The family of this 147-nucleotide RNA from Rosa chinensis is "Small nucleolar RNA snoR2/U65".
The family's RNA type in Rfam is H/ACA-box small nucleolar RNA.
On this family, see Shaw et al., J Cell Sci 1998: "Localization and processing from a polycistronic precursor of novel snoRNAs in maize".
Pairs were carried over by alignment from the consensus structure, which was predicted with WAR.
Its family is annotated with nucleolus and RNA processing in the Gene Ontology.
RNA sequence: GGUUCGAUGCCACGUCGACGGUAGCCAAAGUGCCUUGACCGACGAUGCUAUGAUUGAACCGAGAUCGAAAUCUUUCGCUUUCUGAUAGGAACCUGUGGAUCCUAUUUACAAUCUGGUCCACGGAGCCGAUUUACUGCGAUUACAUCU
Numbered sequence: 001g002g003u004u005c006g007a008u009g010c011c012a013c014g015u016c017g018a019c020g021g022u023a024g025c026c027a028a029a030g031u032g033c034c035u036u037g038a039c040c041g042a043c044g045a046u047g048c049u050a051u052g053a054u055u056g057a058a059c060c061g062a063g064a065u066c067g068a069a070a071u072c073u074u075u076c077g078c079u080u081u082c083u084g085a086u087a088g089g090a091a092c093c094u095g096u097g098g099a100u101c102c103u104a105u106u107u108a109c110a111a112u113c114u115g116g117u118c119c120a121c122g123g124a125g126c127c128g129a130u131u132u133a134c135u136g137c138g139a140u141u142a143c144a145u146c147u
Stems, first nucleotide, its partner, number of pairs: 002059007009051001013047005020040003024033002075139004088127002093123003097119005
Dot-bracket structure: .((((((((...(((((..(((.((......))....)))..)))))...).)))))))...............((((.........((...(((.(((((.............))))).)))..))........))))........